[Rfam]
RNA sequence: GCACAUGUAUUCAUCUCAAUCCACAUGUGUUGAAGUGGAUUGGAGUAUUAAACUAAGUUCCAUUCCAAUCCACUCCAACACAUGUGGAUUGAGGUGUAUACACAU
Dot-bracket structure: .....(((((.(((.(((((((((((((((((..(((((((((.((...............)).)))))))))..))))))))))))))))).))).)))))...
Numbered sequence: 001g002c003a004c005a006u007g008u009a010u011u012c013a014u015c016u017c018a019a020u021c022c023a024c025a026u027g028u029g030u031u032g033a034a035g036u037g038g039a040u041u042g043g044a045g046u047a048u049u050a051a052a053c054u055a056a057g058u059u060c061c062a063u064u065c066c067a068a069u070c071c072a073c074u075c076c077a078a079c080a081c082a083u084g085u086g087g088a089u090u091g092a093g094g095u096g097u098a099u100a101c102a103c104a105u
Stems, first nucleotide, its partner, number of pairs: 006102005012096003016092017035073009045063002
The family of this 105-nucleotide RNA from Sorghum bicolor is "MIR5565 microRNA precursor family". A search with the family's covariance model found it, with a score of 86 bits. Pairs were carried over by alignment from the consensus structure, which was predicted with RNAalifold. The organism belongs to Sorghum, within Eukaryota. Rfam links the family to the GO terms RISC complex and miRNA-mediated post-transcriptional gene silencing.